Description
The record is an 84-nucleotide RNA from Vibrio splendidus, which matches "Fluoride riboswitch aptamer (crcB RNA motif)" in Rfam. Rfam links the family to the GO terms response to fluoride and positive regulation of gene expression. Rfam's curators put it in the seed alignment. The base pairs follow the family's consensus structure, which is taken from published work.
[Rfam]
Nucleotides: 084
Base pairs, nucleotide, nucleotide: 010026011025012024013023016075017074018073019072020071021070045065046064047062
Number, partner (000 for none) and nucleotide at each position: 001000u002000a003000g004000c005000c006000a007000u008000c009000a010026g011025g012024u013023g014000a015000u016075g017074g018073g019072g020071u021070u022000c023013c024012a025011c026010c027000u028000a029000a030000g031000c032000u033000u034000u035000u036000g037000c038000u039000u040000c041000a042000a043000c044000c045065g046064c047062c048000c049000g050000u051000u052000c053000u054000u055000u056000c057000g058000a059000a060000c061000a062047g063000u064046g065045c066000u067000a068000a069000u070021g071020a072019c073018u074017c075016c076000u077000a078000c079000a080000g081000a082000a083000u084000c